[Rfam]
RNA sequence: CGGGGAUGGGCAGGCUCCCGGUAGGCGACACCCGCCCAAGCUCUGC
Numbered sequence: 001c002g003g004g005g006a007u008g009g010g011c012a013g014g015c016u017c018c019c020g021g022u023a024g025g026c027g028a029c030a031c032c033c034g035c036c037c038a039a040g041c042u043c044u045g046c
Base pairs, nucleotide, nucleotide: 001021003019004018005017006016010046011045012044013043014042024036025035026034027033
The family of this 46-nucleotide RNA is "chrB-b RNA". The family's consensus secondary structure is taken from published work. The family's RNA type in Rfam is cis-regulatory element.